[Rfam]
RNA sequence: AGAGAUUGCAAUGAGGAUACCAAGCUCCCUCUUCUGAAUUAAGCUGAGGACAAUUGCUGGCAGAAUCGAACCAUUAUAUCUAGCCACCACUGAGCAA
Numbered sequence: 001a002g003a004g005a006u007u008g009c010a011a012u013g014a015g016g017a018u019a020c021c022a023a024g025c026u027c028c029c030u031c032u033u034c035u036g037a038a039u040u041a042a043g044c045u046g047a048g049g050a051c052a053a054u055u056g057c058u059g060g061c062a063g064a065a066u067c068g069a070a071c072c073a074u075u076a077u078a079u080c081u082a083g084c085c086a087c088c089a090c091u092g093a094g095c096a097a
Stems, first nucleotide, its partner, number of pairs: 006097004
Shown here is a 97-nucleotide sequence from Beta vulgaris, a member of the family "Small nucleolar RNA R30/Z108". For this family Rfam cites "Experimental RNomics. Identification of 140 Candidates for Small Non-Messenger RNAs in the Plant Arabidopsis thaliana" (Marker et al., Curr Biol, 2002). Pairs were carried over by alignment from the consensus structure, which was predicted with PFOLD. Rfam's curators write: snoR30 is a C/D box small nucleolar RNA which acts as a methylation guide for 18S ribosomal RNA in plants.